[Rfam]
RNA sequence: UGCGACACCCAUCAAAGGAGUCGUUCCCCAUCCAGGGGCUACUUACCAUAUUUCGAAUUC
Numbered sequence: 001u002g003c004g005a006c007a008c009c010c011a012u013c014a015a016a017g018g019a020g021u022c023g024u025u026c027c028c029c030a031u032c033c034a035g036g037g038g039c040u041a042c043u044u045a046c047c048a049u050a051u052u053u054c055g056a057a058u059u060c
Base pairs, nucleotide, nucleotide: 017044018043020042021041023039024038025037026036027035
The record is a 60-nucleotide RNA from Gossypium lobatum, which matches "Plastid-psbN 5UTR RNA" in Rfam. About the family: Plastid psbN is a non-coding RNA (ncRNA) recognised in plastids. It was reported as a conserved 11 stem-loop in the prime untranslated region (5UTR) of psbN genes. NCBI's taxonomy places the organism under Eukaryota, Tracheophyta, Spermatophyta, Malvales, Gossypium. The family's consensus secondary structure was predicted with LocARNA. Rfam classes the family as a cis-regulatory element. The literature on the family includes a 2023 paper in Plant Commun by Richter et al., "Retrograde signaling in plants: A critical review focusing on the GUN pathway and beyond".